[Rfam]
RNA sequence: UUUUGAAAAUCAUUUGAAUCAAGUCAAGUAAUGAUUCAAAUGAUUUU
Numbered sequence: 001u002u003u004u005g006a007a008a009a010u011c012a013u014u015u016g017a018a019u020c021a022a023g024u025c026a027a028g029u030a031a032u033g034a035u036u037c038a039a040a041u042g043a044u045u046u047u
Stems, first nucleotide, its partner, number of pairs: 006047016
Shown here is a 47-nucleotide RNA from Anemonastrum trullifolium, a member of the family "Plastid-ccsA-ndhD-2 3UTR RNA". It is annotated as a cis-regulatory element. The source organism's lineage runs through Eukaryota, Streptophyta, Embryophyta, Ranunculaceae and Anemonastrum. The literature on the family includes a 2023 paper in Plant Commun by Richter et al., "Retrograde signaling in plants: A critical review focusing on the GUN pathway and beyond". Rfam's curators write: Plastid ccsA-ndhD-2 is a non-coding RNA (ncRNA) recognised in plastids. It was found in the three prime untranslated region (3UTR) of ccsA and ndhD genes, its 3UTR location suggests a role in transcript maturation. Pairs were carried over by alignment from the consensus structure, which was predicted with LocARNA. The family has 421 seed sequences and 875 matches in Rfam 15.1. It is one of the family's seed sequences.